[Rfam]
RNA: Y RNA
Organism: Papio anubis
RNA sequence: GGCUGGUCUGAAGAUAGGCGUCUCAAUUGUUCACAGCCAUUUACAGAUCGAACUCCUCUUUCCCCCUUCUCACUACUGCACUUGACUAGACUUUU
Number, nucleotide and partner (000 for none) at each position: 001g091002g000003c089004u088005g087006g086007u085008c084009u000010g083011a082012a000013g000014a000015u078016a074017g073018g071019c000020g069021u000022c000023u000024c000025a057026a000027u000028u000029g053030u052031u000032c000033a000034c000035a000036g000037c000038c000039a000040u000041u000042u000043a000044c000045a000046g000047a000048u000049c000050g000051a000052a030053c029054u000055c000056c000057u025058c000059u000060u000061u000062c000063c000064c000065c000066c000067u000068u000069c020070u000071c018072a000073c017074u016075a000076c000077u000078g015079c000080a000081c000082u011083u010084g008085a007086c006087u005088a004089g003090a000091c001092u000093u000094u000095u000